[Rfam]
RNA sequence: AGCCGUGCGGUUAGCACAGAGCGAACUAUUCUUUCGCCUUUUACUAAAGAAUACCGUGUGCUCGCUGCUUUUUGCGGCAUGCGCCUAUUUUUGGAGGUCUAUGUCCUUUUCUGAAU
Numbered sequence: 001a002g003c004c005g006u007g008c009g010g011u012u013a014g015c016a017c018a019g020a021g022c023g024a025a026c027u028a029u030u031c032u033u034u035c036g037c038c039u040u041u042u043a044c045u046a047a048a049g050a051a052u053a054c055c056g057u058g059u060g061c062u063c064g065c066u067g068c069u070u071u072u073u074g075c076g077g078c079a080u081g082c083g084c085c086u087a088u089u090u091u092u093g094g095a096g097g098u099c100u101a102u103g104u105c106c107u108u109u110u111c112u113g114a115a116u
Base pairs, nucleotide, nucleotide: 003077004076005075006074008067009066010065011064013062014061015060016059017058018057027053028052029051030050031049032048033047034046095116098114099113

Shown here is a 116-nucleotide sequence from Gossypium schwendimanii, a member of the family "U5 spliceosomal RNA". Rfam describes the family as follows. U5 RNA is a component of both types of known spliceosome. The precise function of this molecule is unknown, though it is known that the 5' loop is required for splice site selection and p220 binding, and that both the 3' stem-loop and the Sm site are important for Sm protein binding and cap methylation. The organism belongs to Gossypium, within Eukaryota.